c-di-GMP-I-GGC riboswitch aptamer: a 75-nucleotide RNA from Desulfosarcina ovata. NCBI's taxonomy places the organism under Bacteria, Pseudomonadati, Desulfobacteria, Desulfobacterales, Desulfosarcina ovata. The match comes from Rfam's covariance-model search (72 bits).

[Rfam]
RNA sequence: CACGUUAAAGCCAAACCCCGGGCGACCGGGGGACGGAAAACCACGGGUCUCAUUGAGAUCGCCGGGUUGCCGAAA
Numbered sequence: 001c002a003c004g005u006u007a008a009a010g011c012c013a014a015a016c017c018c019c020g021g022g023c024g025a026c027c028g029g030g031g032g033a034c035g036g037a038a039a040a041c042c043a044c045g046g047g048u049c050u051c052a053u054u055g056a057g058a059u060c061g062c063c064g065g066g067u068u069g070c071c072g073a074a075a
Stems, first nucleotide, its partner, number of pairs: 003072002011036002016031006034061001039068004044064003047059003